Overview: Ribosomal protein L20 leader: a 129-nucleotide RNA from Desulforamulus aquiferis. It scores 66 bits against the family's covariance model. The literature on the family includes a 1994 paper in Prog Nucleic Acid Res Mol Biol by Zengel and Lindahl, "Diverse mechanisms for regulating ribosomal protein synthesis in Escherichia coli". The base pairs follow the family's consensus structure, which was predicted with CMfinder.
RNA sequence: AACACGAAGAAGAAGCAUCCGCUUCUCACCUUACAACCUAGGUUGGUGGGGUUAGAUGUUAGAUACAAUAUGUUUAAUAUUGUUUAUUGCGUCUUUAAGCGGGUGAAUAACCCGCUUUUAUUAUUUUAU
Numbered sequence: 001a002a003c004a005c006g007a008a009g010a011a012g013a014a015g016c017a018u019c020c021g022c023u024u025c026u027c028a029c030c031u032u033a034c035a036a037c038c039u040a041g042g043u044u045g046g047u048g049g050g051g052u053u054a055g056a057u058g059u060u061a062g063a064u065a066c067a068a069u070a071u072g073u074u075u076a077a078u079a080u081u082g083u084u085u086a087u088u089g090c091g092u093c094u095u096u097a098a099g100c101g102g103g104u105g106a107a108u109a110a111c112c113c114g115c116u117u118u119u120a121u122u123a124u125u126u127u128a129u
Stems, first nucleotide, its partner, number of pairs: 011026006028052003033047002036043002098116007
The family's RNA type in Rfam is cis-regulatory leader.